[Rfam]
RNA: MIR398 microRNA precursor family
Organism: Morus notabilis
RNA sequence: GUACACCCCAGAGGCGUGACCCCUGAGAACACAAGGCAGGUUUGCCAAUUGCCAUUGCUGCUACAUAUUUGUUGAAUUAAGCCGGUAUAAAUAUAUGCAUGGGCCCAUGGCUAAUGUACCUUGUGUUCUCAGGUCACCCCUUUGGGGCAUCC
Dot-bracket structure: ......((..((((.((((.....((((((((((((..................................................................................))))))))))))...)))).))))..))......